Overview
t44 RNA: a 102-nucleotide sequence from Acidihalobacter prosperus. The match comes from Rfam's covariance-model search (66 bits). The source organism's lineage runs through Bacteria, Pseudomonadati, Pseudomonadota, Chromatiales and Acidihalobacter.
[Rfam]
RNA sequence: CAGGCGUCAUUUAACGACACACAUGCGCCGUCACGGUCCGCUGGGUGCCCGGCUAUCUCAUCGAGGUGCGGGGUUGCGGAUUGGGGCGCAUGGAGGUCCAAC
Numbered sequence: 001c002a003g004g005c006g007u008c009a010u011u012u013a014a015c016g017a018c019a020c021a022c023a024u025g026c027g028c029c030g031u032c033a034c035g036g037u038c039c040g041c042u043g044g045g046u047g048c049c050c051g052g053c054u055a056u057c058u059c060a061u062c063g064a065g066g067u068g069c070g071g072g073g074u075u076g077c078g079g080a081u082u083g084g085g086g087c088g089c090a091u092g093g094a095g096g097u098c099c100a101a102c
Stems, first nucleotide, its partner, number of pairs: 022092008034083008047074004
The literature on the family includes a 2002 paper in Nucleic Acids Res by Tjaden et al., "Transcriptome analysis of Escherichia coli using high-density oligonucleotide probe arrays".